Annotation: The record is a 101-nucleotide RNA from Salinicoccus roseus, which matches "Purine riboswitch aptamer" in Rfam. NCBI's taxonomy places the organism under Bacteria, Bacillati, Bacilli, Caryophanales, Salinicoccus. A search with the family's covariance model found it, with a score of 67 bits.
RNA sequence: AAGUAAUUAAAUAUUUUAUUUCAUAUAAUCAUAAUGAUAUGGAUUAUGAGUUUCUAGGCUUUACCUUAAAUAAGGCUACUAUGGAAUAACAAUUGGAUAUC
Number, nucleotide and partner (000 for none) at each position: 001a000002a000003g000004u000005a000006a000007u000008u000009a000010a000011a000012u000013a000014u000015u000016u000017u000018a087019u086020u085021u084022c083023a082024u081025a080026u000027a000028a000029u049030c048031a047032u046033a045034a044035u043036g000037a000038u000039a000040u000041g000042g000043a035044u034045u033046a032047u031048g030049a029050g000051u000052u000053u000054c000055u000056a000057g077058g076059c075060u074061u073062u072063a071064c000065c000066u000067u000068a000069a000070a000071u063072a062073a061074g060075g059076c058077u057078a000079c000080u025081a024082u023083g022084g021085a020086a019087u018088a000089a000090c000091a000092a000093u000094u000095g000096g000097a000098u000099a000100u000101c000
Notes: The base pairs follow the family's consensus structure, which is taken from published work.